[Rfam]
This 223-nucleotide RNA sequence from Candidatus Burkholderia verschuerenii belongs to the Rfam family "Burkholderia sRNA Bp1_Cand871_SIPHT". Rfam classes the family as a small RNA. The family's consensus secondary structure was predicted with CMfinder. The match comes from Rfam's covariance-model search (166 bits). Its family is annotated with bacterial biofilm matrix in the Gene Ontology.

Nucleotides: 223
Stems, first nucleotide, its partner, number of pairs: 005163003019126002022123010033112006039077001041075001043070002047066002051062001080093005096106003128147002131144002167192002170189007198216008
Number, partner (000 for none) and nucleotide at each position: 001000u002000c003000g004000c005163c006162c007161a008000g009000a010000a011000u012000c013000u014000g015000u016000u017000c018000a019126a020125a021000c022123g023122g024121u025120u026119u027118c028117a029116a030115c031114a032000c033112g034111g035110a036109u037108g038107c039077g040000u041075u042000c043070g044069g045000a046000c047066g048065c049000g050000c051062g052000g053000u054000g055000a056000u057000u058000u059000u060000u061000a062051c063000u064000u065048g066047c067000u068000g069044c070043c071000u072000u073000c074000c075041g076000u077039c078000g079000g080093u081092c082091g083090g084089c085000g086000u087000c088000u089084g090083c091082c092081g093080a094000a095000g096106c097105u098104c099000u100000a101000a102000a103000u104098g105097g106096g107038g108037c109036a110035u111034c112033u113000c114031u115030g116029u117028u118027g119026g120025g121024a122023u123022c124000a125020u126019u127000g128147u129146u130000c131144g132143g133000u134000u135000u136000g137000u138000a139000g140000c141000c142000g143132u144131u145000c146129a147128a148000u149000g150000u151000a152000u153000u154000c155000c156000a157000c158000a159000u160000u161007u162006g163005g164000u165000c166000u167192c168191c169000u170189c171188g172187c173186g174185c175184u176183a177000a178000c179000c180000c181000c182000g183176u184175a185174g186173c187172g188171u189170g190000u191168g192167g193000u194000u195000u196000u197000u198216a199215g200214c201213a202212g203211g204210c205209u206000c207000c208000a209205g210204g211203c212202c213201u214200g215199c216198u217000u218000u219000u220000u221000u222000u223000u